Rfam assigns this 130-nucleotide RNA sequence from Ancylostoma caninum to the family "Nematode snoRNA ceN39". Lineage of the source: Eukaryota > Eumetazoa > Ecdysozoa > Strongyloidea > Ancylostoma. The literature on the family includes a 2007 paper in BMC Mol Biol by Jia et al., "Systematic identification of non-coding RNA 2,2,7-trimethylguanosine cap structures in Caenorhabditis elegans". Rfam links the family to the GO terms nucleolus and RNA processing.
RNA sequence: CUGGCGGAUAGGAACCAGUUAGUGCUCGUGCGUUGAUUGGGCCGAAAACCGCCGAUAUUAUAUGUUCACACUAAAGGUCGUAUGUGCCCGUUUCUUUAGGGCAUGUAUAUCACCAUUGUGCACGACAUUC
Numbered sequence: 001c002u003g004g005c006g007g008a009u010a011g012g013a014a015c016c017a018g019u020u021a022g023u024g025c026u027c028g029u030g031c032g033u034u035g036a037u038u039g040g041g042c043c044g045a046a047a048a049c050c051g052c053c054g055a056u057a058u059u060a061u062a063u064g065u066u067c068a069c070a071c072u073a074a075a076g077g078u079c080g081u082a083u084g085u086g087c088c089c090g091u092u093u094c095u096u097u098a099g100g101g102c103a104u105g106u107a108u109a110u111c112a113c114c115a116u117u118g119u120g121c122a123c124g125a126c127a128u129u130c
Stems, first nucleotide, its partner, number of pairs: 003053005011043002015040011065122001067120004072115001076114003080108002083105005089100001091098001